RNA sequence: CAAGAGUUAGUCAAUGCGAUUACUCCUAGAUUGGAAUAUUGGAAUACUAAUGAUGA
Numbered sequence: 001c002a003a004g005a006g007u008u009a010g011u012c013a014a015u016g017c018g019a020u021u022a023c024u025c026c027u028a029g030a031u032u033g034g035a036a037u038a039u040u041g042g043a044a045u046a047c048u049a050a051u052g053a054u055g056a
Base pairs, nucleotide, nucleotide: 006051007050008049009048010047011046017041018040019039020038024035025034026033
RNA: Transposase-1 RNA